[Rfam]
RNA sequence: CGCUGUACUCAGGGCGGGGUGGAAUUCCCCACCGGCGGUAUCCCGGCGCGAGCCGGGGAGCCCGCGAGCGCUUCCGCCAUGCGGCGGAAGGUCAGCAGACCUGGUGCGAGGCCAGGGCCGACGGUCACAGUCCGGAUGGAAGAGGAUACGG
Numbered sequence: 001c002g003c004u005g006u007a008c009u010c011a012g013g014g015c016g017g018g019g020u021g022g023a024a025u026u027c028c029c030c031a032c033c034g035g036c037g038g039u040a041u042c043c044c045g046g047c048g049c050g051a052g053c054c055g056g057g058g059a060g061c062c063c064g065c066g067a068g069c070g071c072u073u074c075c076g077c078c079a080u081g082c083g084g085c086g087g088a089a090g091g092u093c094a095g096c097a098g099a100c101c102u103g104g105u106g107c108g109a110g111g112c113c114a115g116g117g118c119c120g121a122c123g124g125u126c127a128c129a130g131u132c133c134g135g136a137u138g139g140a141a142g143a144g145g146a147u148a149c150g151g
Stems, first nucleotide, its partner, number of pairs: 004148003008144003017029003031131002033120002035065004060118002068096002100116005122134003
Shown here is a 151-nucleotide sequence from Desulfovibrio sp. X2, a member of the family "FMN riboswitch aptamer (RFN element)". From the family's description: The RFN element is a highly conserved domain that is found frequently in the 5'-untranslated regions of prokaryotic mRNAs that encode for flavin mononucleotide (FMN) biosynthesis and transport proteins. This element is a metabolite-dependent riboswitch that directly binds FMN in the absence of proteins. In Bacillus subtilis, the riboswitch most likely controls gene expression by causing premature transcription termination within the 5' untranslated region of the ribDEAHT operon and precluding access to the ribosome-binding site of ypaA mRNA.The FMN riboswitch structure, reported in present an FMN-bound six-stem junction, adopts a butterfly-like scaffold, stapled together by opposingly directed but nearly identically folded peripheral domains. A search with the family's covariance model found it, with a score of 93 bits. The base pairs follow the family's consensus structure, which is taken from published work. The organism belongs to Desulfovibrio, within Bacteria.